Shown here is a 120-nucleotide RNA sequence from Salvia splendens, a member of the family "U5 spliceosomal RNA". The literature on the family includes a 1997 paper in Nucleic Acids Res by Zwieb, "The uRNA database". The family's consensus secondary structure is taken from published work. It scores 80 bits against the family's covariance model. Taxonomically the source falls in core Calosphace (Eukaryota, Streptophytina, Euphyllophyta, Nepetoideae). It is annotated as a spliceosomal small nuclear RNA.

RNA sequence: AGUCGCGCGUUGAGCACAUAGCGAACUAUUCUUUUGCCUUUUACUAAAGAAUACCGUGUGCUUGUCGCUUAUAAGUGGCAUACGCCAUUUUUUGGAGGGGUGUCUUCUUUCAAGGAGGCC
Number, nucleotide and partner (000 for none) at each position: 001a000002g000003u078004c077005g076006c075007g000008c067009g066010u000011u064012g063013a062014g061015c060016a059017c058018a057019u000020a000021g000022c000023g000024a000025a000026c000027u053028a052029u051030u050031c049032u048033u047034u046035u000036g000037c000038c000039u000040u000041u000042u000043a000044c000045u000046a034047a033048a032049g031050a030051a029052u028053a027054c000055c000056g000057u018058g017059u016060g015061c014062u013063u012064g011065u000066c009067g008068c000069u000070u000071a000072u000073a000074a000075g006076u005077g004078g003079c000080a000081u000082a000083c000084g000085c000086c000087a000088u000089u000090u000091u000092u000093u000094g000095g000096a000097g000098g000099g000100g000101u000102g120103u000104c118105u117106u116107c115108u000109u000110u000111c000112a000113a000114g000115g107116a106117g105118g104119c000120c102